Shown here is a 54-nucleotide sequence from Gellertiella hungarica, a member of the family "COG3860 RNA".
Taxonomically the source falls in Gellertiella (Bacteria, Pseudomonadota, Hyphomicrobiales, Rhizobiaceae).
RNA sequence: CGGUCCGCAGUUCACCGAGGCAUCGCCGCCCGAGAGGGCACGCUAAACCUGCCA
Numbered sequence: 001c002g003g004u005c006c007g008c009a010g011u012u013c014a015c016c017g018a019g020g021c022a023u024c025g026c027c028g029c030c031c032g033a034g035a036g037g038g039c040a041c042g043c044u045a046a047a048c049c050u051g052c053c054a
Base pairs, nucleotide, nucleotide: 001017002016003015004014028039029038030037031036